[Rfam]
Description
A member of the RNA family "Pseudomonas sRNA P26" from Shewanella sediminis, 61 nucleotides long. For this family Rfam cites "Identification of 17 Pseudomonas aeruginosa sRNAs and prediction of sRNA-encoding genes in 10 diverse pathogens using the bioinformatic tool sRNAPredict2" (Livny et al., Nucleic Acids Res, 2006). Lineage of the source: Bacteria > Pseudomonadati > Shewanellaceae > Shewanella > Shewanella sediminis. It is annotated as a non-coding RNA gene. From the family's description: This small RNA (sRNA) was computationally identified in the genome of the opportunistic pathogen Pseudomonas aeruginosa and its expression verified by northern blot analysis. P26 is conserved across many Gammaproteobacteria species and appears to be consistently located between the DNA directed RNA polymerase (beta subunit) and 50S ribosomal protein L7/L12 genes.
RNA sequence: AAUUUAACUUACUAAGCCCGAGUAAUCGGGUGAAGGCUGGCGGUUUUUUAACCGUCGGCCU
Numbered sequence: 001a002a003u004u005u006a007a008c009u010u011a012c013u014a015a016g017c018c019c020g021a022g023u024a025a026u027c028g029g030g031u032g033a034a035g036g037c038u039g040g041c042g043g044u045u046u047u048u049u050a051a052c053c054g055u056c057g058g059c060c061u
Base pairs, nucleotide, nucleotide: 008032010030012028016023017022035060036059037058038057039056040055041054042053043052044051